[Rfam]
Nucleotides: 142
Stems, first nucleotide, its partner, number of pairs: 004060003008056001012053003018047003022041001024039004081137005096130001098128001103125002107121002110118001
Number, partner (000 for none) and nucleotide at each position: 001000a002000c003000c004060c005059c006058u007000c008056g009000c010000a011000a012053u013052g014051g015000g016000c017000a018047a019046a020045g021000a022041g023000a024039c025038a026037c027036c028000u029000u030000g031000u032000u033000g034000g035000u036027g037026g038025u039024g040000g041022u042000g043000u044000u045020c046019u047018u048000g049000u050000g051014u052013c053012a054000g055000u056008c057000a058006g059005g060004g061000c062000a063000g064000a065000g066000a067000a068000u069000a070000u071000g072000g073000c074000a075000g076000g077000c078000c079000u080000u081137u082136g083135u084134u085133c086000a087000u088000c089000u090000u091000a092000g093000u094000u095000u096130g097000a098128u099000g100000c101000c102000a103125g104124a105000c106000u107121u108120g109000g110118u111000g112000g113000c114000c115000a116000a117000a118110g119000c120108u121107g122000u123000u124104u125103c126000a127000u128098g129000c130096c131000u132000a133085g134084g135083g136082c137081a138000c139000a140000u141000a142000a

Shown here is a 142-nucleotide RNA sequence from Mus spicilegus, a member of the family "Small nucleolar RNA SNORA48". About the family: The snoRNA ACA 48 has been identified to guide pseudouridylation of the residue U3797 in the 28S rRNA subunit. The match comes from Rfam's covariance-model search (59 bits). Lineage of the source: Eukaryota > Eumetazoa > Chordata > Muroidea > Mus. The base pairs follow the family's consensus structure, which was predicted with RNAalifold.